[Rfam]
RNA sequence: UGGCUCCGUUUCCUGGGCAGUGGGCUCAAGCUCCUCCACCUCCCCUCAUACGAGCCUAGAGUAGAGAGGCCUGGCUUUCUCCUUAUGGGAGAGGUGUUCGAGAAAGGAGCCUCACCCAAGCUGUCUUAGCCUUACAAUU
Numbered sequence: 001u002g003g004c005u006c007c008g009u010u011u012c013c014u015g016g017g018c019a020g021u022g023g024g025c026u027c028a029a030g031c032u033c034c035u036c037c038a039c040c041u042c043c044c045c046u047c048a049u050a051c052g053a054g055c056c057u058a059g060a061g062u063a064g065a066g067a068g069g070c071c072u073g074g075c076u077u078u079c080u081c082c083u084u085a086u087g088g089g090a091g092a093g094g095u096g097u098u099c100g101a102g103a104a105a106g107g108a109g110c111c112u113c114a115c116c117c118a119a120g121c122u123g124u125c126u127u128a129g130c131c132u133u134a135c136a137a138u139u
Base pairs, nucleotide, nucleotide: 002056003055004054005053006052015044016043017042020039021038022037023036024035066133067132068131069130070129073126074125078120080118087112088111089110
RNA: Small Cajal body specific RNA 21